Notes:
This 85-nucleotide sequence from Streptomyces sp. Amel2xC10 belongs to the Rfam family "nrdJ RNA". The source organism's lineage runs through Bacteria, Bacillati, Actinomycetota, Actinomycetes and Streptomyces.
[Rfam]
RNA sequence: ACCUGUUGCGGGCGGUAGCGCGUGGGCGCCCGCAGCACACGACAGAACAACGUGUCACGGGAACAGCGUGGCAUUUCAGGGCGUU
Numbered sequence: 001a002c003c004u005g006u007u008g009c010g011g012g013c014g015g016u017a018g019c020g021c022g023u024g025g026g027c028g029c030c031c032g033c034a035g036c037a038c039a040c041g042a043c044a045g046a047a048c049a050a051c052g053u054g055u056c057a058c059g060g061g062a063a064c065a066g067c068g069u070g071g072c073a074u075u076u077c078a079g080g081g082c083g084u085u
Stems, first nucleotide, its partner, number of pairs: 004037011016025001052074008